[Rfam]
RNA sequence: CAGGAGAAAGUUUAAUAAAAAACCGCAGCUUUGGGAGUUGCAAUGUAAGGUAAGCCUUAUUCUCUUGA
Dot-bracket structure: (((((((..((((......)))).(((((.......)))))...(((((......)))))))))))).
The record is a 68-nucleotide RNA sequence from Strongylocentrotus purpuratus, which matches "tRNA" in Rfam. The base pairs follow the family's consensus structure, which is taken from published work. It is one of the family's seed sequences.